[Rfam]
RNA sequence: GAUUAUAUCUUAGCGCGAGCUCUUGCGUAUGCAAGAGGACGAGGAAGAGGUUGUCGAAGGGUGGAGCAUACGCUCCCGGUUCAGCGGAUGCCUCUCGGCCGGGUCCGGUCGAAAAAGCUGUAAAAUCCGAACGGUGACGGGCGGGACAAAGCAGUGUAUAAGGAC
Numbered sequence: 001g002a003u004u005a006u007a008u009c010u011u012a013g014c015g016c017g018a019g020c021u022c023u024u025g026c027g028u029a030u031g032c033a034a035g036a037g038g039a040c041g042a043g044g045a046a047g048a049g050g051u052u053g054u055c056g057a058a059g060g061g062u063g064g065a066g067c068a069u070a071c072g073c074u075c076c077c078g079g080u081u082c083a084g085c086g087g088a089u090g091c092c093u094c095u096c097g098g099c100c101g102g103g104u105c106c107g108g109u110c111g112a113a114a115a116a117g118c119u120g121u122a123a124a125a126u127c128c129g130a131a132c133g134g135u136g137a138c139g140g141g142c143g144g145g146a147c148a149a150a151g152c153a154g155u156g157u158a159u160a161a162g163g164a165c
Stems, first nucleotide, its partner, number of pairs: 020037007046095005054084001056082002096111006115157001117155001127144003132139002
This 165-nucleotide sequence from Schwartzia succinivorans belongs to the Rfam family "glmS glucosamine-6-phosphate activated ribozyme aptamer". The family's RNA type in Rfam is riboswitch.